Annotation
Rfam assigns this 76-nucleotide RNA sequence from Microcaecilia unicolor to the family "mir-19 microRNA precursor family". For this family Rfam cites "Identification of novel genes coding for small expressed RNAs" (Lagos-Quintana et al., Science, 2001). Its family is annotated with RISC complex and miRNA-mediated post-transcriptional gene silencing in the Gene Ontology. The source organism's lineage runs through Eukaryota, Eumetazoa, Teleostomi, Euteleostomi and Microcaecilia.
RNA sequence: GGUCCUCUUUAGUUUUGCAUAGUUGCACUACAAGAAGAAUAUAGUUGUGCAAAUCUAUGCAAAACUGAUGGUGGCC
Numbered sequence: 001g002g003u004c005c006u007c008u009u010u011a012g013u014u015u016u017g018c019a020u021a022g023u024u025g026c027a028c029u030a031c032a033a034g035a036a037g038a039a040u041a042u043a044g045u046u047g048u049g050c051a052a053a054u055c056u057a058u059g060c061a062a063a064a065c066u067g068a069u070g071g072u073g074g075c076c
Stems, first nucleotide, its partner, number of pairs: 003074002006071002009068011023052006030045002